[Rfam]
The family of this 95-nucleotide RNA sequence is "Small nucleolar RNA Z163/Z177 family".
It is one of the family's seed sequences.
By type it is a C/D-box small nucleolar RNA.
The base pairs follow the family's consensus structure.
On this family, see Chen et al., Nucleic Acids Res 2003: "The high diversity of snoRNAs in plants: identification and comparative study of 120 snoRNA genes from Oryza sativa".
Its family is annotated with nucleolus and RNA processing in the Gene Ontology.

RNA sequence: UGGCCGGUGAUGGAUGAAACCUGAGUUGUACAGACACUCUUAAGUGAGUUGAAUGAAGUGCACUGACACACACUCACAUUGCGUCUCUGAGGCCA
Number, nucleotide and partner (000 for none) at each position: 001u095002g094003g093004c092005c091006g000007g000008u000009g000010a000011u000012g000013g000014a000015u000016g000017a000018a000019a000020c000021c000022u000023g000024a000025g000026u000027u000028g000029u000030a000031c000032a000033g000034a000035c000036a000037c000038u000039c000040u000041u000042a000043a000044g000045u000046g000047a000048g000049u000050u000051g000052a000053a000054u000055g000056a000057a000058g000059u000060g000061c000062a000063c000064u000065g000066a000067c000068a000069c000070a000071c000072a000073c000074u000075c000076a000077c000078a000079u000080u000081g000082c000083g000084u000085c000086u000087c000088u000089g000090a000091g005092g004093c003094c002095a001